[Rfam]
RNA sequence: GAGAUUCCCUAAGCGCCAUGCACCUGCCCUGGCAGGUUAACGAGGAGAAAGGUGAUCGAAAAUUCGGCGGAUGCCUUUCCGCACCGUUCCAGUGCGAGACACAUCGGCAAAUAUGCGGGUGACUGCAAAACAAAUACGAUGUUUGAUGGAAC
Number, nucleotide and partner (000 for none) at each position: 001g000002a000003g000004a000005u000006u000007c000008c000009c000010u000011a000012a000013g000014c000015g000016c000017c000018a000019u000020g000021c000022a037023c036024c035025u034026g033027c032028c000029c000030u000031g000032g027033c026034a025035g024036g023037u022038u000039a000040a000041c000042g000043a000044g000045g000046a000047g079048a078049a077050a076051g075052g000053u000054g000055a000056u067057c066058g065059a064060a000061a000062a000063u000064u059065c058066g057067g056068c000069g000070g000071a000072u000073g000074c000075c051076u050077u049078u048079c047080c096081g095082c094083a093084c092085c000086g000087u000088u000089c000090c000091a000092g084093u083094g082095c081096g080097a000098g000099a000100c000101a142102c141103a140104u139105c138106g137107g000108c000109a000110a000111a000112u000113a000114u127115g126116c125117g124118g123119g000120u000121g000122a000123c118124u117125g116126c115127a114128a000129a000130a000131c000132a000133a000134a000135u000136a000137c106138g105139a104140u103141g102142u101143u000144u000145g000146a000147u000148g000149g000150a000151a000152c000
Shown here is a 152-nucleotide sequence from Roseburia hominis, a member of the family "glmS glucosamine-6-phosphate activated ribozyme aptamer". Its family is annotated with catalytic activity and regulation of gene expression in the Gene Ontology. The family's RNA type in Rfam is riboswitch. Pairs were carried over by alignment from the consensus structure, which is taken from published work. The source organism's lineage runs through Bacteria, Clostridia, Lachnospirales, Roseburia and Roseburia hominis.